[Rfam]
The family of this 229-nucleotide part of an RNA from Desulfolithobacter dissulfuricans is "Bacterial large subunit ribosomal RNA". NCBI's taxonomy places the organism under Bacteria, Pseudomonadati, Thermodesulfobacteriota, Desulfobulbaceae, Desulfolithobacter.
RNA sequence: GACUUACCCUAUGUAGCGAGGUUAAGCCGCGAGGUGUAGCCGGAGCGAAAGCGAGUCUUAACAGGGCGACAUAGUUACAUGGGGUAGACCCGAAGCCGGGUGAUCUAUCCAUGUCCAGGGUGAAGGUCGAGUAACAUCGACUGGAGGCCCGAACCAGUGUAGGUUGAAAACUGCUUGGAUGAGGUGUGGAUAGGAGUGAAAGGCUAAUCAAACUCGGUGAUAGCUGGUU
Numbered sequence: 001g002a003c004u005u006a007c008c009c010u011a012u013g014u015a016g017c018g019a020g021g022u023u024a025a026g027c028c029g030c031g032a033g034g035u036g037u038a039g040c041c042g043g044a045g046c047g048a049a050a051g052c053g054a055g056u057c058u059u060a061a062c063a064g065g066g067c068g069a070c071a072u073a074g075u076u077a078c079a080u081g082g083g084g085u086a087g088a089c090c091c092g093a094a095g096c097c098g099g100g101u102g103a104u105c106u107a108u109c110c111a112u113g114u115c116c117a118g119g120g121u122g123a124a125g126g127u128c129g130a131g132u133a134a135c136a137u138c139g140a141c142u143g144g145a146g147g148c149c150c151g152a153a154c155c156a157g158u159g160u161a162g163g164u165u166g167a168a169a170a171c172u173g174c175u176u177g178g179a180u181g182a183g184g185u186g187u188g189g190a191u192a193g194g195a196g197u198g199a200a201a202g203g204c205u206a207a208u209c210a211a212a213c214u215c216g217g218u219g220a221u222a223g224c225u226g227g228u229u
Base pairs, nucleotide, nucleotide: 005086006085007084008083009082010081011080012079013078014077015076016075017074020041021040022039023038026035027034028033045052046051055067056066057065058064089227090226092224096217097216098215099214100213101212105193106192107191108190109189110188111187112186113185114184115183116181118150119149120148121147125142126141127140128139129138130137154178155177156176159174160173161172162171195205196204197203